[Rfam]
RNA sequence: GUAGAUGCUCAUUCCACUUCUUAUGUUCGCCUUAGGCCUCAUAAACCCUGGGAAUGACGCAGAGCCGAUUUAGGGUGCCUAUUGCCCACCAGAACGAUGAAAGCCUCGCUUGCGACGCCGACAUCACACUGCGGGCAUAACGUUGAGUGAGGCACCACCCCUGUUGUCCUAGACCUGAUUGCUUCUUUAUACACUUGCCAGACUGGCAAGUGUUUUUUU
Numbered sequence: 001g002u003a004g005a006u007g008c009u010c011a012u013u014c015c016a017c018u019u020c021u022u023a024u025g026u027u028c029g030c031c032u033u034a035g036g037c038c039u040c041a042u043a044a045a046c047c048c049u050g051g052g053a054a055u056g057a058c059g060c061a062g063a064g065c066c067g068a069u070u071u072a073g074g075g076u077g078c079c080u081a082u083u084g085c086c087c088a089c090c091a092g093a094a095c096g097a098u099g100a101a102a103g104c105c106u107c108g109c110u111u112g113c114g115a116c117g118c119c120g121a122c123a124u125c126a127c128a129c130u131g132c133g134g135g136c137a138u139a140a141c142g143u144u145g146a147g148u149g150a151g152g153c154a155c156c157a158c159c160c161c162u163g164u165u166g167u168c169c170u171a172g173a174c175c176u177g178a179u180u181g182c183u184u185c186u187u188u189a190u191a192c193a194c195u196u197g198c199c200a201g202a203c204u205g206g207c208a209a210g211u212g213u214u215u216u217u218u219u
Stems, first nucleotide, its partner, number of pairs: 001065002006061003009057004015052001017051001019043001027036001074156007084136004096125004166174003191213010
RNA: GlmZ RNA activator of glmS mRNA
Organism: Serratia rubidaea